The family of this 590-nucleotide part of an RNA from Chloropicon primus is "Eukaryotic large subunit ribosomal RNA". It scores 3298 bits against the family's covariance model.
[Rfam]
RNA sequence: CGACCUCAGAUCAGGCAAGAGUACCCGCUGAACUUAAGCAUAUCACUAAGCGGAGGAAAAGAAACUAACCAGGAUUCCUAUAGUAACGGCGAGUGAACUAGGAAAAGCCCAACUGAAAAUCCUUCGGGAAUUGUAGUCUACAGAAGCAAUCUCUGUGUCGUCCACGGCCCAAGUUCCCUGGAAAGGGACGCCGGAGAGGGUGACAGCCCCGUCGGCUGUGUUUCGUCACUCCACGAGAUGCUUUCUCAGAGUCGGGUAGUUUGGGAAUGCUGCCCUAAUUUGGAGGUAAAUUCCUUCUAAGGCUAAAUACUGGCGAGAGACCGAUAGCGAACAAGUACCGUGAGGGAAAGAUGAAAAGCACUUUGAAAAGAGAGUUAAAAGGGCUUGAAAUUGUUGAGGGGGAAGGAAAUGGUUGCCGGUGUGCACUUUGGUUUUAUGUUUAGUUAACGCUAAGCCUAUCAACGCAUUGUGCUGGUCAGCGUGGGUUGGACGGGCGGUAUAACCACGUACUGCCGCCUGUUCGACCGAGGUCGGAGGUAACGCUCGAGACGCUGACGGAAGGUAACCACUUCACCCGUCUUGAAACACGG
Numbered sequence: 001c002g003a004c005c006u007c008a009g010a011u012c013a014g015g016c017a018a019g020a021g022u023a024c025c026c027g028c029u030g031a032a033c034u035u036a037a038g039c040a041u042a043u044c045a046c047u048a049a050g051c052g053g054a055g056g057a058a059a060a061g062a063a064a065c066u067a068a069c070c071a072g073g074a075u076u077c078c079u080a081u082a083g084u085a086a087c088g089g090c091g092a093g094u095g096a097a098c099u100a101g102g103a104a105a106a107g108c109c110c111a112a113c114u115g116a117a118a119a120u121c122c123u124u125c126g127g128g129a130a131u132u133g134u135a136g137u138c139u140a141c142a143g144a145a146g147c148a149a150u151c152u153c154u155g156u157g158u159c160g161u162c163c164a165c166g167g168c169c170c171a172a173g174u175u176c177c178c179u180g181g182a183a184a185g186g187g188a189c190g191c192c193g194g195a196g197a198g199g200g201u202g203a204c205a206g207c208c209c210c211g212u213c214g215g216c217u218g219u220g221u222u223u224c225g226u227c228a229c230u231c232c233a234c235g236a237g238a239u240g241c242u243u244u245c246u247c248a249g250a251g252u253c254g255g256g257u258a259g260u261u262u263g264g265g266a267a268u269g270c271u272g273c274c275c276u277a278a279u280u281u282g283g284a285g286g287u288a289a290a291u292u293c294c295u296u297c298u299a300a301g302g303c304u305a306a307a308u309a310c311u312g313g314c315g316a317g318a319g320a321c322c323g324a325u326a327g328c329g330a331a332c333a334a335g336u337a338c339c340g341u342g343a344g345g346g347a348a349a350g351a352u353g354a355a356a357a358g359c360a361c362u363u364u365g366a367a368a369a370g371a372g373a374g375u376u377a378a379a380a381g382g383g384c385u386u387g388a389a390a391u392u393g394u395u396g397a398g399g400g401g402g403a404a405g406g407a408a409a410u411g412g413u414u415g416c417c418g419g420u421g422u423g424c425a426c427u428u429u430g431g432u433u434u435u436a437u438g439u440u441u442a443g444u445u446a447a448c449g450c451u452a453a454g455c456c457u458a459u460c461a462a463c464g465c466a467u468u469g470u471g472c473u474g475g476u477c478a479g480c481g482u483g484g485g486u487u488g489g490a491c492g493g494g495c496g497g498u499a500u501a502a503c504c505a506c507g508u509a510c511u512g513c514c515g516c517c518u519g520u521u522c523g524a525c526c527g528a529g530g531u532c533g534g535a536g537g538u539a540a541c542g543c544u545c546g547a548g549a550c551g552c553u554g555a556c557g558g559a560a561g562g563u564a565a566c567c568a569c570u571u572c573a574c575c576c577g578u579c580u581u582g583a584a585a586c587a588c589g590g
Stems, first nucleotide, its partner, number of pairs: 024055001025053005035042002065072002076103005086094002106304004112137004117132002120129003143245002145242004150238004155229003159225002163220007173189001175188004192196001199209002254275007282297004338345002361372004406572003410568008421472001424471003429466002476555007575590004